The record is a 69-nucleotide sequence from Paenibacillus roseus, which matches "int-alpA RNA" in Rfam.
Rfam classes the family as a small RNA.
About the family: Acidobacteria (1 example), Planctomycetes (1 example), Proteobacteria.
RNA sequence: UCUGGGAAUAGCGCGGCCACGCGAAAAGUGGUACUCCGAAACCACCUGUCCCGGUUUCUUUUCUUUCGG
Numbered sequence: 001u002c003u004g005g006g007a008a009u010a011g012c013g014c015g016g017c018c019a020c021g022c023g024a025a026a027a028g029u030g031g032u033a034c035u036c037c038g039a040a041a042c043c044a045c046c047u048g049u050c051c052c053g054g055u056u057u058c059u060u061u062u063c064u065u066u067c068g069g
Stems, first nucleotide, its partner, number of pairs: 002054006011022003028045005036069005